Description: A member of the RNA family "Lysine riboswitch aptamer" from Thermoflavimicrobium daqui, 186 nucleotides long.

[Rfam]
RNA sequence: AUGUGAGGUAGAGGAGCGAACUUUCAAUAGUACUUGUUUGGAGAUGCGGGAUCAAUGAAAAACAAGGAAAGGGAAAGUUUGCCGAAACUCUCAUAAGGCCCGAACCUUAAGAGAGUUGGGGUUGUACUCGAAUAGGGUCAACACUGUCACAGAAGCCGCUUGCUUUUGUGGAGCACUAUCUUUCAG
Numbered sequence: 001a002u003g004u005g006a007g008g009u010a011g012a013g014g015a016g017c018g019a020a021c022u023u024u025c026a027a028u029a030g031u032a033c034u035u036g037u038u039u040g041g042a043g044a045u046g047c048g049g050g051a052u053c054a055a056u057g058a059a060a061a062a063c064a065a066g067g068a069a070a071g072g073g074a075a076a077g078u079u080u081g082c083c084g085a086a087a088c089u090c091u092c093a094u095a096a097g098g099c100c101c102g103a104a105c106c107u108u109a110a111g112a113g114a115g116u117u118g119g120g121g122u123u124g125u126a127c128u129c130g131a132a133u134a135g136g137g138u139c140a141a142c143a144c145u146g147u148c149a150c151a152g153a154a155g156c157c158g159c160u161u162g163c164u165u166u167u168g169u170g171g172a173g174c175a176c177u178a179u180c181u182u183u184c185a186g
Base pairs, nucleotide, nucleotide: 006181007180008179009178010177011176016082017081018080019079020078021077022076023075024074033066034065035064036063037062038061039060086117087116088115089114090113091112092111094109095108096107097106118145119144121142122141123140124139127136128135147171148170149169150168151167152166153165154164155163